[Rfam]
RNA: Small nucleolar RNA R38
Organism: Gossypium australe
RNA sequence: GUCUGUGUAUGAUGAGAAAUCUUUGAAUCAGUUAUCCCUGUCUGAGAUUUUUGGAUGAGAUCUUGAUAUCUGACACAGAC
Numbered sequence: 001g002u003c004u005g006u007g008u009a010u011g012a013u014g015a016g017a018a019a020u021c022u023u024u025g026a027a028u029c030a031g032u033u034a035u036c037c038c039u040g041u042c043u044g045a046g047a048u049u050u051u052u053g054g055a056u057g058a059g060a061u062c063u064u065g066a067u068a069u070c071u072g073a074c075a076c077a078g079a080c
Stems, first nucleotide, its partner, number of pairs: 001080007